RNA sequence: CUCCAAGGCAUUAUUGAAGGCAGCGUUGGUGAAUCCCUCUGCCUUGCCAACGCCUUAAAGAAGAUGAUGGCAUGGGAAUUGGACCUCAUCAACGCUGCACUCAAUGGUGCCUUUG
Numbered sequence: 001c002u003c004c005a006a007g008g009c010a011u012u013a014u015u016g017a018a019g020g021c022a023g024c025g026u027u028g029g030u031g032a033a034u035c036c037c038u039c040u041g042c043c044u045u046g047c048c049a050a051c052g053c054c055u056u057a058a059a060g061a062a063g064a065u066g067a068u069g070g071c072a073u074g075g076g077a078a079u080u081g082g083a084c085c086u087c088a089u090c091a092a093c094g095c096u097g098c099a100c101u102c103a104a105u106g107g108u109g110c111c112u113u114u115g
Stems, first nucleotide, its partner, number of pairs: 006112006013105005020098009030088003
Rfam assigns this 115-nucleotide RNA sequence from Zingiber officinale to the family "MIR397 microRNA precursor family".
Pairs were carried over by alignment from the consensus structure, which was predicted with WAR.
Taxonomically the source falls in Zingiber (Eukaryota, Tracheophyta, Mesangiospermae, Petrosaviidae).
A reference for the family is Wu et al. (2009), "Rice MicroRNA effector complexes and targets", Plant Cell.